The family of this 211-nucleotide RNA sequence from Ectocarpus sp. CCAP 1310/34 is "MIR8622 microRNA precursor family".
Pairs were carried over by alignment from the consensus structure, which was predicted with RNAalifold.
The source organism's lineage runs through Eukaryota, Sar, Phaeophyceae, Ectocarpales and Ectocarpus.
Its family is annotated with RISC complex and miRNA-mediated post-transcriptional gene silencing in the Gene Ontology.
A search with the family's covariance model found it, with a score of 220 bits.

RNA sequence: UUGAAAUCUGCGCCGGAACCAAGCGGCAGCCAACAUUUGUCACAGCCGUGCUCACCGCCACGGACCGUAAAUCCCUGAAAGGAGGGUUGUCAGCAGCAGCUAGUGGUAUCAGCUACUGCUGUACACCCGCAGUUCAGGAAAUUGGGGUCAGUGGCGGCGAGGACGGCUGUGACAAAUGUUGGCUGCCGCUUGGUUCCGGCGCAGAUUUCAA
Numbered sequence: 001u002u003g004a005a006a007u008c009u010g011c012g013c014c015g016g017a018a019c020c021a022a023g024c025g026g027c028a029g030c031c032a033a034c035a036u037u038u039g040u041c042a043c044a045g046c047c048g049u050g051c052u053c054a055c056c057g058c059c060a061c062g063g064a065c066c067g068u069a070a071a072u073c074c075c076u077g078a079a080a081g082g083a084g085g086g087u088u089g090u091c092a093g094c095a096g097c098a099g100c101u102a103g104u105g106g107u108a109u110c111a112g113c114u115a116c117u118g119c120u121g122u123a124c125a126c127c128c129g130c131a132g133u134u135c136a137g138g139a140a141a142u143u144g145g146g147g148u149c150a151g152u153g154g155c156g157g158c159g160a161g162g163a164c165g166g167c168u169g170u171g172a173c174a175a176a177u178g179u180u181g182g183c184u185g186c187c188g189c190u191u192g193g194u195u196c197c198g199g200c201g202c203a204g205a206u207u208u209c210a211a
Stems, first nucleotide, its partner, number of pairs: 001211033035177007043169007051161003055157007063149004068144003072140001074138006084128003091121006098114004
Dot-bracket structure: (((((((((((((((((((((((((((((((((.(((((((.(((((((.(((.(((((((.((((.(((.(.((((((....(((....((((((.((((.........)))).))))))....)))....)))))).).))).)))).))))))).))).))))))).))))))).)))))))))))))))))))))))))))))))))